[Rfam]
RNA: Saccharopolyspora sRNA 350
RNA sequence: ACCACGGUGUGGACCCAGCCGGGCGCCUCCUCGGUCAGCGCCUCGCCGCCGAAGUAGCCGCCGUCGGCCUCGACGCCGAGCCGGGUGCCCUCGCCGUACUCGCCGGUGCCGAUCCGGUCCACCCGGCCGUGCGCGACGAUGAAGAAGCGGUCCGCGCGGCCGCCCUCAUCGGUGAUGCUCGCGCCCGCCUCCACCUCUUCCUGCUCGAAGCCCUCGGAAAGGGCGGCCAGCACGGCGUCGUCCGUCACACCCGCGAACAGCGGGAUCUCGCGCAGGCUGGGCGGGACGACCCGCGCCUCACCGCCCUCGCGGGCGACGGUCACGCGGCCGCCACCGACCGCGUACGUGAGCCGGCGGUUGACGCGAUAGGUGCCGCCGGACACCUGCACCCAGGGGAGCACCCGCAGGAGCCACCGGGAGCUGAUCCCCUGCAUCUGCGGGACGGAUUUCGUGGUCGUCGCGAGGUUCCGGGCCGCCGCGGUGCCCAGGCUCGACGGUUGCUGCGA
Dot-bracket structure: .....(((((((.....((.(...(((((.....((.(((....(.((..((.((....(((((((((......(.((((...(((......)))...)))))....))))......(...((..(...((.(((..((...((....((...(.((((.(((.(.(....).)..))....).))))).))..)).))..))).)..)...)..))...).)))))....))((((..((.((((...(.(.((..(.(((......)))...)..)).).).))))))...))))))..)).)..))).)).)).)))....).))(((........)))........(((((((...((.......)).)))))))....)))))))(((((((.((..(.(.(.......)).)...)).))))))).....((((..((((((((((.......)))))).))))..))))((.(((...(.(......).)..))).)).